Saccharopolyspora sRNA 350: a 500-nucleotide RNA from Amycolatopsis cihanbeyliensis. The match comes from Rfam's covariance-model search (181 bits).

RNA sequence: UGCACCGUGAAGUCCCACAGGUUGCCGGAUUCGAGCAGCAUUGUGGAGCCGAAGUGCUCGCCAUCGGCCAUGGUGCCGAGCACCGUGCGGUCGCCGUACUCGCCCGCGCCCAGCCGGUUCGCCUUGCCGUGCGCGAUCAGGUACACCCGGUCCGCGCGGUGCCCGAACUCGGCGAUCACCUCGCCCGGCUGGAACUGCUCCUGCUCGAACCGGUCGGCCAGCGCGUCCAGUACGUCCUCGUCGUCGAACCCGCGCAGCGGCGCGAGUUCCCGCAACUCCUGCGGGAUCACCCGCACCGCGGAGCCGGUGUUCACGAAGGUGACCCUGCCGUCGCCGAGGGUGUAGGUGAGCCUGCGGUUCACCCGGUACGUACCACCCUUCGUCUCCACCCAGGGCAGCUUCCGCAGCAGCCACCGCGGCGAGAUGCCCUGCAUCUGCGGCACCGACUUGGUCGUCGUGGCCAGUUGCCGCGCGGCCGCCGUGCCGAGGCUGUGCGGCGG
Numbered sequence: 001u002g003c004a005c006c007g008u009g010a011a012g013u014c015c016c017a018c019a020g021g022u023u024g025c026c027g028g029a030u031u032c033g034a035g036c037a038g039c040a041u042u043g044u045g046g047a048g049c050c051g052a053a054g055u056g057c058u059c060g061c062c063a064u065c066g067g068c069c070a071u072g073g074u075g076c077c078g079a080g081c082a083c084c085g086u087g088c089g090g091u092c093g094c095c096g097u098a099c100u101c102g103c104c105c106g107c108g109c110c111c112a113g114c115c116g117g118u119u120c121g122c123c124u125u126g127c128c129g130u131g132c133g134c135g136a137u138c139a140g141g142u143a144c145a146c147c148c149g150g151u152c153c154g155c156g157c158g159g160u161g162c163c164c165g166a167a168c169u170c171g172g173c174g175a176u177c178a179c180c181u182c183g184c185c186c187g188g189c190u191g192g193a194a195c196u197g198c199u200c201c202u203g204c205u206c207g208a209a210c211c212g213g214u215c216g217g218c219c220a221g222c223g224c225g226u227c228c229a230g231u232a233c234g235u236c237c238u239c240g241u242c243g244u245c246g247a248a249c250c251c252g253c254g255c256a257g258c259g260g261c262g263c264g265a266g267u268u269c270c271c272g273c274a275a276c277u278c279c280u281g282c283g284g285g286a287u288c289a290c291c292c293g294c295a296c297c298g299c300g301g302a303g304c305c306g307g308u309g310u311u312c313a314c315g316a317a318g319g320u321g322a323c324c325c326u327g328c329c330g331u332c333g334c335c336g337a338g339g340g341u342g343u344a345g346g347u348g349a350g351c352c353u354g355c356g357g358u359u360c361a362c363c364c365g366g367u368a369c370g371u372a373c374c375a376c377c378c379u380u381c382g383u384c385u386c387c388a389c390c391c392a393g394g395g396c397a398g399c400u401u402c403c404g405c406a407g408c409a410g411c412c413a414c415c416g417c418g419g420c421g422a423g424a425u426g427c428c429c430u431g432c433a434u435c436u437g438c439g440g441c442a443c444c445g446a447c448u449u450g451g452u453c454g455u456c457g458u459g460g461c462c463a464g465u466u467g468c469c470g471c472g473c474g475g476c477c478g479c480c481g482u483g484c485c486g487a488g489g490c491u492g493u494g495c496g497g498c499g500g
Stems, first nucleotide, its partner, number of pairs: 007389003011385002014382001018327001020325002022322005031316002037311006045305002049301003054233002057230002060227001062225001064223001066110003075103001077102004082097002085094002117222003122217002127212001129210002131206001133204003140196002146192002152188003156184002160178002164174002234296002237293001240290002243287003249283001251281002254278001256277002260271001262269001329342004354376001356374002361371002391431007399423003403418003407415001437476002440473001443470001445468001448464005484500003488495001

NCBI's taxonomy places the organism under Bacteria, Actinomycetota, Actinomycetes, Pseudonocardiaceae, Amycolatopsis. The literature on the family includes a 2013 paper in PLoS One by Liu et al., "Prediction and characterization of small non-coding RNAs related to secondary metabolites in Saccharopolyspora erythraea".